[Rfam]
RNA sequence: UUCUUGAACUGGAAGAGUGCCAUAAAAUCAUGACAAAGUACGUGAUAUUAUGCACAUUUUCUAGUUCAAGAC
Numbered sequence: 001u002u003c004u005u006g007a008a009c010u011g012g013a014a015g016a017g018u019g020c021c022a023u024a025a026a027a028u029c030a031u032g033a034c035a036a037a038g039u040a041c042g043u044g045a046u047a048u049u050a051u052g053c054a055c056a057u058u059u060u061c062u063a064g065u066u067c068a069a070g071a072c
Stems, first nucleotide, its partner, number of pairs: 002071005008065009017055003021052005027046003031042002
Dot-bracket structure: .(((((.((((((((((((.(((((.(((.((........)).))).)))))))).))))))))).))))).
Overview
The record is a 72-nucleotide RNA from Caenorhabditis elegans, which matches "mir-60 microRNA precursor family" in Rfam. Gene Ontology terms of the family: miRNA-mediated post-transcriptional gene silencing and RISC complex. Pairs were carried over by alignment from the consensus structure, which was predicted with RNAalifold.